Rfam assigns this 81-nucleotide sequence from Cottoperca gobio to the family "mir-459 microRNA precursor family".
Rfam 15.1 lists 114 matches to the family in 95 species.
Gene Ontology terms of the family: miRNA-mediated post-transcriptional gene silencing and RISC complex.
The source organism's lineage runs through Eukaryota, Metazoa, Actinopterygii, Euteleosteomorpha and Cottoperca.
The match comes from Rfam's covariance-model search (78 bits).
Pairs were carried over by alignment from the consensus structure, which was predicted with RNAalifold.
RNA sequence: CACAGCGCUGUCAGUAACAAGGAUUCAUCCUGUUGUGAUGCUGCAGGCUGACAGGAAGUCCCUGUUACUGGGGGCGAGUGU
Numbered sequence: 001c002a003c004a005g006c007g008c009u010g011u012c013a014g015u016a017a018c019a020a021g022g023a024u025u026c027a028u029c030c031u032g033u034u035g036u037g038a039u040g041c042u043g044c045a046g047g048c049u050g051a052c053a054g055g056a057a058g059u060c061c062c063u064g065u066u067a068c069u070g071g072g073g074g075c076g077a078g079u080g081u
Stems, first nucleotide, its partner, number of pairs: 011071009021061005029055007037048001039046001